[Rfam]
RNA sequence: UUAGCUAUUUUAGAUAGGUUUGUAUUCAUGAAUUCAUGGAUGCAAACAAUGCACGUUUGUAUCUAUGAUGGCUGAAGAACUUUAAAUUGACUUUAAAGCCAUGUAGAUGAUUCAUCUAUAAUGGCUUUUUUCUUUUAGUAGACCCAU
Numbered sequence: 001u002u003a004g005c006u007a008u009u010u011u012a013g014a015u016a017g018g019u020u021u022g023u024a025u026u027c028a029u030g031a032a033u034u035c036a037u038g039g040a041u042g043c044a045a046a047c048a049a050u051g052c053a054c055g056u057u058u059g060u061a062u063c064u065a066u067g068a069u070g071g072c073u074g075a076a077g078a079a080c081u082u083u084a085a086a087u088u089g090a091c092u093u094u095a096a097a098g099c100c101a102u103g104u105a106g107a108u109g110a111u112u113c114a115u116c117u118a119u120a121a122u123g124g125c126u127u128u129u130u131u132c133u134u135u136u137a138g139u140a141g142a143c144c145c146a147u
Stems, first nucleotide, its partner, number of pairs: 001075007011065006018047012050059002081142003086139003097126006104118003
This 147-nucleotide RNA sequence from Enterococcus pallens belongs to the Rfam family "Enterococcus sRNA 2410". Pairs were carried over by alignment from the consensus structure, which was predicted with RNAfold. By type it is a small RNA. The literature on the family includes a 2017 paper in Sci Rep by Sinel et al., "Small RNAs in vancomycin-resistant Enterococcus faecium involved in daptomycin response and resistance". Taxonomically the source falls in Enterococcus pallens (Bacteria, Bacillota, Lactobacillales, Enterococcaceae). Produced as 2 transcripts on Northern blot. Expressed in mid, late exponential and early stationary phases of growth. Expression remained uniform under daptomycin exposure.